[Rfam]
RNA sequence: GCAUCUAAAUCUUUCCUGAUCCUUGCAGGGCAGUGCAGGACUGGAGACACAUGAUGCUACAGCAAAGCAGAGGAAAUCAAGACAGGCUCCUUUCCAUUUGCACUGGGACUUGUGUCUACAACCCUGCAACAUUU
Numbered sequence: 001g002c003a004u005c006u007a008a009a010u011c012u013u014u015c016c017u018g019a020u021c022c023u024u025g026c027a028g029g030g031c032a033g034u035g036c037a038g039g040a041c042u043g044g045a046g047a048c049a050c051a052u053g054a055u056g057c058u059a060c061a062g063c064a065a066a067g068c069a070g071a072g073g074a075a076a077u078c079a080a081g082a083c084a085g086g087c088u089c090c091u092u093u094c095c096a097u098u099u100g101c102a103c104u105g106g107g108a109c110u111u112g113u114g115u116c117u118a119c120a121a122c123c124c125u126g127c128a129a130c131a132u133u134u
Base pairs, nucleotide, nucleotide: 001057002056003055004054005053013047014046016044017043018042021039022038067127068126069125070124072122080115082113083112084111085110086109094106095105096104
RNA: Small nucleolar RNA SNORA55
Organism: Gopherus evgoodei